[Rfam]
RNA: ASpks TB sRNA
Organism: Amycolatopsis saalfeldensis
RNA sequence: CUUGAGCGAGCCGAGCCGCAGCGGCUCGCCCGCCGCCCGGUCACGGCCGUAGGUGGCGAUCAGGGCCUGGGCCUC
Dot-bracket structure: .............((((.....))))....(.(....(....(...(((....)))...)....)...).)....